[Rfam]
RNA sequence: CUCCAAAGCAACUCUUCCAAGUCUUUUUUUGUGUGGUUCUUCCAUUCUACCAAAUCCCAUCAUCAUGUCUCCCUGCUCCUGCAACUGCUGCUCCGGCAACUGCAACUCUUGCUCCUGCUCUAGCUGCACUGUACGUCGUG
Dot-bracket structure: .........................................................................((((...(((.....)))...))))...(((......((....))......))).............
Numbered sequence: 001c002u003c004c005a006a007a008g009c010a011a012c013u014c015u016u017c018c019a020a021g022u023c024u025u026u027u028u029u030u031g032u033g034u035g036g037u038u039c040u041u042c043c044a045u046u047c048u049a050c051c052a053a054a055u056c057c058c059a060u061c062a063u064c065a066u067g068u069c070u071c072c073c074u075g076c077u078c079c080u081g082c083a084a085c086u087g088c089u090g091c092u093c094c095g096g097c098a099a100c101u102g103c104a105a106c107u108c109u110u111g112c113u114c115c116u117g118c119u120c121u122a123g124c125u126g127c128a129c130u131g132u133a134c135g136u137c138g139u140g
Stems, first nucleotide, its partner, number of pairs: 074098004081091003102127003111118002